[Rfam]
RNA sequence: AAUGGAAGCUGCAGGGACCACCCAUGUAGACAAUGAAAUACUUUUUGUCUAUAGUAUGCAGCCUUCCUAUAAAAAAGUGGAGGUCUCUGUCUGGCUUAGGGCAGCUGGCUAAGCUUGAUCGUUCCCCUCCACACAAU
Numbered sequence: 001a002a003u004g005g006a007a008g009c010u011g012c013a014g015g016g017a018c019c020a021c022c023c024a025u026g027u028a029g030a031c032a033a034u035g036a037a038a039u040a041c042u043u044u045u046u047g048u049c050u051a052u053a054g055u056a057u058g059c060a061g062c063c064u065u066c067c068u069a070u071a072a073a074a075a076a077g078u079g080g081a082g083g084u085c086u087c088u089g090u091c092u093g094g095c096u097u098a099g100g101g102c103a104g105c106u107g108g109c110u111a112a113g114c115u116u117g118a119u120c121g122u123u124c125c126c127c128u129c130c131a132c133a134c135a136a137u
Stems, first nucleotide, its partner, number of pairs: 004067003008062005025053007035044003079130005087121001089119003093115007